[Rfam]
RNA sequence: AGAGUCUUAUGGUGGAAGGUUUAGCAAACCACACCAGCCUCGAGUCAUGCGGCAAUUGCAGUAAUGCAUUGGCUGAAGCGUUGACAGAGGGAAGCACAGGCGGGCUAUUGAGCUCCGAAAUCACUCAUUCUCGGGUGCCGACCACGUGGUCCGAUGGGGAAGGCAACACGUUUUGCCGCGUUAUUAUGCGAGCUGUAAGACGACCCGGCGGAGUCCUAGAACC
Numbered sequence: 001a002g003a004g005u006c007u008u009a010u011g012g013u014g015g016a017a018g019g020u021u022u023a024g025c026a027a028a029c030c031a032c033a034c035c036a037g038c039c040u041c042g043a044g045u046c047a048u049g050c051g052g053c054a055a056u057u058g059c060a061g062u063a064a065u066g067c068a069u070u071g072g073c074u075g076a077a078g079c080g081u082u083g084a085c086a087g088a089g090g091g092a093a094g095c096a097c098a099g100g101c102g103g104g105c106u107a108u109u110g111a112g113c114u115c116c117g118a119a120a121u122c123a124c125u126c127a128u129u130c131u132c133g134g135g136u137g138c139c140g141a142c143c144a145c146g147u148g149g150u151c152c153g154a155u156g157g158g159g160a161a162g163g164c165a166a167c168a169c170g171u172u173u174u175g176c177c178g179c180g181u182u183a184u185u186a187u188g189c190g191a192g193c194u195g196u197a198a199g200a201c202g203a204c205c206c207g208g209c210g211g212a213g214u215c216c217u218a219g220a221a222c223c
Stems, first nucleotide, its partner, number of pairs: 010036005018030004022191001024189002038090004044085004048080002050075004055070001057068004110215001112214006131208006137164003142158002169202008178193002

Shown here is a 223-nucleotide RNA from an uncultured bacterium, a member of the family "Group II catalytic intron D1-D4-6". Rfam's curators write: Group II introns are found in rRNA, tRNA and mRNA of organelles in fungi, plants and protists, and also in mRNA in bacteria. Pairs were carried over by alignment from the consensus structure. The family has 174 seed sequences and 1,617 matches in Rfam 15.1. For this family Rfam cites "The ins and outs of group II introns" (Bonen and Vogel, Trends Genet, 2001). Its family is annotated with Group II intron splicing in the Gene Ontology.